[Rfam]
RNA sequence: GAGAAAUGAUGAGGAUUUAUGUGAACUACUGAUGUCUGUGAAGACUAAUAAUCCAACUCUGAUCUCAUACAUGGC
Dot-bracket structure: ((((..........................................................)))).........
Numbered sequence: 001g002a003g004a005a006a007u008g009a010u011g012a013g014g015a016u017u018u019a020u021g022u023g024a025a026c027u028a029c030u031g032a033u034g035u036c037u038g039u040g041a042a043g044a045c046u047a048a049u050a051a052u053c054c055a056a057c058u059c060u061g062a063u064c065u066c067a068u069a070c071a072u073g074g075c
Stems, first nucleotide, its partner, number of pairs: 001066004
A member of the RNA family "Small nucleolar RNA SNORD19" from Salmo trutta, 75 nucleotides long. The base pairs follow the family's consensus structure. The source organism's lineage runs through Eukaryota, Deuterostomia, Actinopteri, Clupeocephala and Salmo. The match comes from Rfam's covariance-model search (43 bits).